[Rfam]
The record is a 90-nucleotide RNA sequence from Mesorhizobium sp. Root172, which matches "Mesorhizobail RNA 36" in Rfam.
It scores 69 bits against the family's covariance model.
The source organism's lineage runs through Bacteria, Pseudomonadati, Alphaproteobacteria, Hyphomicrobiales and Mesorhizobium.

RNA sequence: AGGGAUGGUCUAGAGUUGCCGCGAAUGCAGGGGCCAACCAUGUACAAGGCCGUCGGAUCACAGGGCUCCCGGGUCAGCCGCGUCCUCUGG
Numbered sequence: 001a002g003g004g005a006u007g008g009u010c011u012a013g014a015g016u017u018g019c020c021g022c023g024a025a026u027g028c029a030g031g032g033g034c035c036a037a038c039c040a041u042g043u044a045c046a047a048g049g050c051c052g053u054c055g056g057a058u059c060a061c062a063g064g065g066c067u068c069c070c071g072g073g074u075c076a077g078c079c080g081c082g083u084c085c086u087c088u089g090g
Stems, first nucleotide, its partner, number of pairs: 004054008015045002020042002023039001027034001061089005068082001070080003

About the family: Existence predicted via genome wide comparisons with 4 related strains. Analysed further by deep sequencing and Northern blot under various stress conditions. Strong signals in response to variety of stimuli. Highly abundant in symbiotic, micro-oxygen, oxidative and salt stress conditions.